[Rfam]
RNA: U12 minor spliceosomal RNA
RNA sequence: AUGCCUUAAACUUAUGAAUCCGGAAAAGAACGAUUCAGUGUGACACCCGAAUCCUGGCAGCUAACGUGAGACGAACGUCCGAGCGCAUAAAGGUCGCCCCUAAGGUGACAAGGCGACCCACCUACACGGUGGGAUGCCCGGGAGCUGCGAUCUGCCCC
Numbered sequence: 001a002u003g004c005c006u007u008a009a010a011c012u013u014a015u016g017a018a019u020c021c022g023g024a025a026a027a028g029a030a031c032g033a034u035u036c037a038g039u040g041u042g043a044c045a046c047c048c049g050a051a052u053c054c055u056g057g058c059a060g061c062u063a064a065c066g067u068g069a070g071a072c073g074a075a076c077g078u079c080c081g082a083g084c085g086c087a088u089a090a091a092g093g094u095c096g097c098c099c100c101u102a103a104g105g106u107g108a109c110a111a112g113g114c115g116a117c118c119c120a121c122c123u124a125c126a127c128g129g130u131g132g133g134a135u136g137c138c139c140g141g142g143a144g145c146u147g148c149g150a151u152c153u154g155c156c157c158c
Base pairs, nucleotide, nucleotide: 004023005022008019032053033052034051035050036049038047054070055069057067058066085157088154091153092152093151094150095149096148097147100142101141104138105137106136107135117133118132119131120130121129